DUF805b RNA: a 34-nucleotide sequence from Nonlabens tegetincola. By type it is a cis-regulatory element.
[Rfam]
RNA sequence: AUAGAGGAAGCCGAAAAUCAUUAAAGAGUAGGCA
Numbered sequence: 001a002u003a004g005a006g007g008a009a010g011c012c013g014a015a016a017a018u019c020a021u022u023a024a025a026g027a028g029u030a031g032g033c034a
Stems, first nucleotide, its partner, number of pairs: 004019002010033003
About this RNA: The organism belongs to Nonlabens, within Bacteria.